A member of the RNA family "Rhizobiales sRNA Atu_At1" from Rhizobium subbaraonis, 107 nucleotides long. Rfam classes the family as a small RNA. The base pairs follow the family's consensus structure, which was predicted with CMfinder. For this family Rfam cites "Deep sequencing uncovers numerous small RNAs on all four replicons of the plant pathogen Agrobacterium tumefaciens" (Wilms et al., RNA Biol, 2012). Lineage of the source: Bacteria > Pseudomonadota > Alphaproteobacteria > Hyphomicrobiales > Rhizobium. Rfam 15.1 lists 200 matches to the family in 177 species.
[Rfam]
RNA sequence: AAAUGCGCCGUGUCAACCGGACACGAUGAUAUGGAAAACACGAGGAUUUUUCCGGUUUCUUCUCAUGGCCAACGAAACGGCAGACGAGUUCCUACGUCAUCCGGCGC
Numbered sequence: 001a002a003a004u005g006c007g008c009c010g011u012g013u014c015a016a017c018c019g020g021a022c023a024c025g026a027u028g029a030u031a032u033g034g035a036a037a038a039c040a041c042g043a044g045g046a047u048u049u050u051u052c053c054g055g056u057u058u059c060u061u062c063u064c065a066u067g068g069c070c071a072a073c074g075a076a077a078c079g080g081c082a083g084a085c086g087a088g089u090u091c092c093u094a095c096g097u098c099a100u101c102c103g104g105c106g107c
Base pairs, nucleotide, nucleotide: 006106007105008104009103011023012022013021014020025101026100027099028098029097030096033092034091035090036089039067040066042064043063044062045061068081069080070079